[Rfam]
RNA: Small nucleolar RNA SNORA79
Organism: Gadus morhua
RNA sequence: UGACGUCAGUUCCUCCUCCUGCUCUAAGUUCAGCAGUGUGGAUUUUAUGAUGUCACAGAAUAAGAUGGGGUCUAUUUCACCCAGGAGAUGUUUGGGUGGCAGUGCUGCCCCUCUAACCUCCUGGUUUUGCUGGACCCCACAAAU
Number, nucleotide and partner (000 for none) at each position: 001u055002g054003a053004c052005g051006u050007c049008a048009g000010u000011u000012c000013c000014u042015c041016c040017u000018c038019c000020u035021g034022c033023u032024c000025u000026a000027a000028g000029u000030u000031c000032a023033g022034c021035a020036g000037u000038g018039u000040g016041g015042a014043u000044u000045u000046u000047a000048u008049g007050a006051u005052g004053u003054c002055a001056c000057a000058g000059a000060a000061u000062a000063a000064g000065a000066u000067g000068g000069g136070g135071u134072c133073u132074a131075u000076u000077u000078c000079a000080c000081c124082c123083a122084g121085g120086a119087g118088a000089u116090g000091u000092u000093u000094g110095g109096g108097u107098g106099g000100c000101a000102g000103u000104g000105c000106u098107g097108c096109c095110c094111c000112u000113c000114u000115a000116a089117c000118c087119u086120c085121c084122u083123g082124g081125u000126u000127u000128u000129g000130c000131u074132g073133g072134a071135c070136c069137c000138c000139a000140c000141a000142a000143a000144u000